A member of the RNA family "Small nucleolar RNA R160" from Olea europaea, 78 nucleotides long. The pairing is the family consensus, mapped onto this sequence. The match comes from Rfam's covariance-model search (74 bits). From the family's description: snoR160 is a C/D box small nucleolar RNA, which acts as a methylation guide for 25S ribosomal RNA in plants. snoR160 has been alternatively named snoZ270 in rice. The source organism's lineage runs through Eukaryota, Viridiplantae, Tracheophyta, Lamiales and Olea europaea. The family has 9 seed sequences and 799 matches in Rfam 15.1.

RNA sequence: AGCAAGAUGAUGAAAACUUGUAAUCUGAAUUAUGUGUGGAAAUACAAAUUCAAUGGUCUUCAAAGUUCUCUGAUUGCU
Dot-bracket structure: (((((....................................................................)))))